A member of the RNA family "mir-9223 microRNA precursor family" from Myotis lucifugus, 75 nucleotides long. Rfam 15.1 lists 14,641 matches to the family in 28 species.
[Rfam]
RNA sequence: GGCGGUUCUCAGGUGACACAGCCCGGAACUGGGCCCCUUCCUCUCUGGUUCCGGGUGUGUCAUCCCAGAACUGCC
Numbered sequence: 001g002g003c004g005g006u007u008c009u010c011a012g013g014u015g016a017c018a019c020a021g022c023c024c025g026g027a028a029c030u031g032g033g034c035c036c037c038u039u040c041c042u043c044u045c046u047g048g049u050u051c052c053g054g055g056u057g058u059g060u061c062a063u064c065c066c067a068g069a070a071c072u073g074c075c
Stems, first nucleotide, its partner, number of pairs: 002074002005071005012064006019057002022054002025052009